[Rfam]
RNA sequence: UGUCAUACCUCGGGGGGCUGAAAAGCUGAGAUGUACGUGAGUGCGGACCCGUUGAACCUGAACCGGUUAACACCGGCGGAGGGAAGGUAUGGACAUCCAUC
Numbered sequence: 001u002g003u004c005a006u007a008c009c010u011c012g013g014g015g016g017g018c019u020g021a022a023a024a025g026c027u028g029a030g031a032u033g034u035a036c037g038u039g040a041g042u043g044c045g046g047a048c049c050c051g052u053u054g055a056a057c058c059u060g061a062a063c064c065g066g067u068u069a070a071c072a073c074c075g076g077c078g079g080a081g082g083g084a085a086g087g088u089a090u091g092g093a094c095a096u097c098c099a100u101c
Base pairs, nucleotide, nucleotide: 006089007088008087009086010085011051012050013049014048017026018025019024033044034043035042036041057082058081059080063076064075065074066073
Rfam assigns this 101-nucleotide sequence from Sulfitobacter sp. THAF37 to the family "TPP riboswitch aptamer (THI element)". Rfam links the family to the GO term thiamine pyrophosphate binding. The family's consensus secondary structure is taken from published work.